[Rfam]
RNA sequence: AAAAAGGGCUCCCACCGCACGUGGUGCCUAUCCCUCCGGGGAGCGGGCGGAAUGGCUAUCAAGACAUUCCGGGGGCGUAAUCUUUGUCACUGGGGCAGCCGAUCAACCCGGUUGGCGCCCCG
Numbered sequence: 001a002a003a004a005a006g007g008g009c010u011c012c013c014a015c016c017g018c019a020c021g022u023g024g025u026g027c028c029u030a031u032c033c034c035u036c037c038g039g040g041g042a043g044c045g046g047g048c049g050g051a052a053u054g055g056c057u058a059u060c061a062a063g064a065c066a067u068u069c070c071g072g073g074g075g076c077g078u079a080a081u082c083u084u085u086g087u088c089a090c091u092g093g094g095g096c097a098g099c100c101g102a103u104c105a106a107c108c109c110g111g112u113u114g115g116c117g118c119c120c121c122g
Base pairs, nucleotide, nucleotide: 008076009075010074011073012072013026014025015024016023017022027047028046029045031043033041034040035039048071049070050069051068052067053066054065093120094119095118096117098116099115100114101113102112107111
RNA: U11 spliceosomal RNA